Rfam assigns this 84-nucleotide RNA sequence from Erinaceus europaeus to the family "Y RNA". Taxonomically the source falls in Erinaceus (Eukaryota, Chordata, Theria, Laurasiatheria).
[Rfam]
RNA sequence: AGUUGGUUCAAGAGUUGUGGUUUAUUGUUAAGCUGUUUAACAUUGUCUGCCAUCCACAACCGCAUUUGACUGACUUAAGAUUUU
Dot-bracket structure: ((((((((.((..(((((((.....(((.((.....)).)))...........)))))...))..)))))))))).........
Record summary:
Rfam's curators put it in the seed alignment.